[Rfam]
RNA sequence: CAUGCACCCAAACCCAAAGGCCAUAUCCUGUCAGUGGUAUGAUUUUGUCUGGUGUGCAAACAGAAAACUGAUCCUUGUCGCCUUUCUCUGAUGCUGCUGUGCCGUUGAAAGUGAAUUCAAGGGUCAAUAAAU
Numbered sequence: 001c002a003u004g005c006a007c008c009c010a011a012a013c014c015c016a017a018a019g020g021c022c023a024u025a026u027c028c029u030g031u032c033a034g035u036g037g038u039a040u041g042a043u044u045u046u047g048u049c050u051g052g053u054g055u056g057c058a059a060a061c062a063g064a065a066a067a068c069u070g071a072u073c074c075u076u077g078u079c080g081c082c083u084u085u086c087u088c089u090g091a092u093g094c095u096g097c098u099g100u101g102c103c104g105u106u107g108a109a110a111g112u113g114a115a116u117u118c119a120a121g122g123g124u125c126a127a128u129a130a131a132u
Stems, first nucleotide, its partner, number of pairs: 003058005009052001019044002022041006070125007082111005088104001090102001

Annotation:
The record is a 132-nucleotide RNA from Perca flavescens, which matches "Small nucleolar RNA SNORA68" in Rfam. The match comes from Rfam's covariance-model search (66 bits). Lineage of the source: Eukaryota > Craniata > Euteleosteomorpha > Percinae > Perca. On this family, see Ganot et al., Genes Dev 1997: "The family of box ACA small nucleolar RNAs is defined by an evolutionarily conserved secondary structure and ubiquitous sequence elements essential for RNA accumulation".